[Rfam]
The family of this 76-nucleotide RNA from Hemibagrus wyckioides is "mir-17 microRNA precursor family". The organism belongs to Hemibagrus, within Eukaryota. On this family, see Lagos-Quintana et al., Science 2001: "Identification of novel genes coding for small expressed RNAs". Rfam's curators write: This family represents the microRNA (miRNA) precursor mir-17, family, which includes mir-20, mir-91, and mir-103. miRNAs are transcribed as ~70nt precursors (modelled here) and subsequently processed by the Dicer enzyme to give a ~22nt product. In this case the mature sequence comes from the 3' arm of the precursor.

RNA sequence: UUGUGUGUGAUAAAGUGCUUACAGUGCAGGUAGUGUGUCUGUUCUACUGCAUUGUGGGCACUUCUGUCUUACAUCA
Number, nucleotide and partner (000 for none) at each position: 001u000002u000003g000004u073005g072006u071007g070008u000009g068010a067011u066012a000013a063014a062015g061016u060017g059018c058019u057020u056021a055022c054023a053024g052025u051026g050027c049028a000029g048030g047031u046032a045033g044034u000035g000036u000037g000038u000039c000040u000041g000042u000043u000044c033045u032046a031047c030048u029049g027050c026051a025052u024053u023054g022055u021056g020057g019058g018059c017060a016061c015062u014063u013064c000065u000066g011067u010068c009069u000070u007071a006072c005073a004074u000075c000076a000